[Rfam]
This 122-nucleotide RNA from Kandleria vitulina belongs to the Rfam family "Ribosomal protein L10 leader". A search with the family's covariance model found it, with a score of 64 bits. About the family: This family is a putative r-protein leader autoregulatory structure found in B. subtilis and other low-GC Gram-positive bacteria. Taxonomically the source falls in Kandleria vitulina (Bacteria, Erysipelotrichia, Erysipelotrichales, Kandleria). For this family Rfam cites "Specific interactions of the L10(L12)4 ribosomal protein complex with mRNA, rRNA, and L11" (Iben and Draper, Biochemistry, 2008). The base pairs follow the family's consensus structure, which was predicted with CMfinder. Rfam links the family to the GO term regulation of gene expression.
RNA sequence: UUAGGUGCAAUCAAUAUACCGUAGACAGUAACUGGCCAAUAACCUUAAUUUGUUACCGAGGGAUAUUGUCAAAUGACAUUGACAAGCUCUCCUCGUGUUAGGAGAGCUUUUAUACAGUAUAU
Numbered sequence: 001u002u003a004g005g006u007g008c009a010a011u012c013a014a015u016a017u018a019c020c021g022u023a024g025a026c027a028g029u030a031a032c033u034g035g036c037c038a039a040u041a042a043c044c045u046u047a048a049u050u051u052g053u054u055a056c057c058g059a060g061g062g063a064u065a066u067u068g069u070c071a072a073a074u075g076a077c078a079u080u081g082a083c084a085a086g087c088u089c090u091c092c093u094c095g096u097g098u099u100a101g102g103a104g105a106g107c108u109u110u111u112a113u114a115c116a117g118u119a120u121a122u
Base pairs, nucleotide, nucleotide: 028056029055030054031053032052034044035043086107087106088105089104090103091102092101093100